Shown here is a 105-nucleotide sequence from Sporolactobacillus laevolacticus, a member of the family "SAM riboswitch aptamer (S box leader)".
[Rfam]
Nucleotides: 105
Base pairs, nucleotide, nucleotide: 002104003103004102005101006100007099008098013041015040016039017038021031022030023029025080026079027078028077042072043071044070045069047068048067050064051063052062053061076097081094082093083092084091
Number, partner (000 for none) and nucleotide at each position: 001000a002104u003103c004102u005101u006100a007099u008098c009000a010000a011000g012000a013041g014000u015040g016039g017038c018000g019000g020000a021031g022030g023029g024000a025080c026079u027078g028077g029023c030022c031021c032000g033000a034000c035000g036000a037000a038017g039016c040015c041013c042072g043071a044070c045069a046000a047068c048067c049000a050064g051063c052062a053061c054000a055000g056000a057000u058000u059000g060000u061053g062052u063051g064050u065000a066000u067048g068047g069045u070044g071043u072042u073000a074000a075000u076097u077028c078027c079026a080025g081094c082093a083092g084091a085000u086000u087000a088000a089000g090000u091084u092083c093082u094081g095000g096000c097076a098008g099007a100006u101005a102004a103003g104002a105000a
The SAM riboswitch is found upstream of a number of genes which code for proteins involved in methionine or cysteine biosynthesis in Gram-positive bacteria. The SAM riboswitch acts at the level of transcription termination control.